[Rfam]
RNA sequence: UGGUUGAAGGAGCACGCCUGGAAAGCGUGUAUACGGGGAAACCUGUAUCGAGAGUUCGAAUCUCUCACUCUCCGCCAUUUUUAUAUCCUUUUUCAGGUCGGGCCGCAGUGCCUGGGUCUUGCGCAAUGGAGCCUCGUGAACCACGUCAGGUCCGGAAGGAAGCAGCGUUAAGCGAAUCGUUCCAUGUGCCGCAAGGUCGCCUGGGAACUGCGGUUCGACGUGGAAAAGGAUGGAGAGCAGCCA
Numbered sequence: 001u002g003g004u005u006g007a008a009g010g011a012g013c014a015c016g017c018c019u020g021g022a023a024a025g026c027g028u029g030u031a032u033a034c035g036g037g038g039a040a041a042c043c044u045g046u047a048u049c050g051a052g053a054g055u056u057c058g059a060a061u062c063u064c065u066c067a068c069u070c071u072c073c074g075c076c077a078u079u080u081u082u083a084u085a086u087c088c089u090u091u092u093u094c095a096g097g098u099c100g101g102g103c104c105g106c107a108g109u110g111c112c113u114g115g116g117u118c119u120u121g122c123g124c125a126a127u128g129g130a131g132c133c134u135c136g137u138g139a140a141c142c143a144c145g146u147c148a149g150g151u152c153c154g155g156a157a158g159g160a161a162g163c164a165g166c167g168u169u170a171a172g173c174g175a176a177u178c179g180u181u182c183c184a185u186g187u188g189c190c191g192c193a194a195g196g197u198c199g200c201c202u203g204g205g206a207a208c209u210g211c212g213g214u215u216c217g218a219c220g221u222g223g224a225a226a227a228g229g230a231u232g233g234a235g236a237g238c239a240g241c242c243a
Stems, first nucleotide, its partner, number of pairs: 001243006007078001009076002012030006019023001034074006079237004084233001088229002091225005097219003101216002103213007111205007118195006124186002127184005134175004143168004151160003

This 243-nucleotide sequence from Mitsuokella jalaludinii belongs to the Rfam family "Bacterial large signal recognition particle RNA". About the family: The signal recognition particle (SRP) is a universally conserved ribonucleoprotein involved in the co-translational targeting of proteins to membranes. It scores 106 bits against the family's covariance model. The literature on the family includes a 2003 paper in Nucleic Acids Res by Rosenblad et al., "SRPDB: Signal Recognition Particle Database".